[Rfam]
RNA: Small nucleolar RNA snoR2/U65
RNA sequence: GGUUCGAUGCCACGUCGCCGGUAGCUGAAAUAGCCUUGACCGACGAUGCUACAUUGAACCAACAGCGAUCCCUUUCGCAUUCUGAUAGGAACCUGUGGAUCCUAAUACACUCUGGUCCACGGAGCCGAUUUACUGCGAUUACAUUU
Dot-bracket structure: .((((((((...(((((..(((.(((.....)))....)))..)))))...))))))))...............(((((........((...(((.(((((............))))).)))..)).......)))))........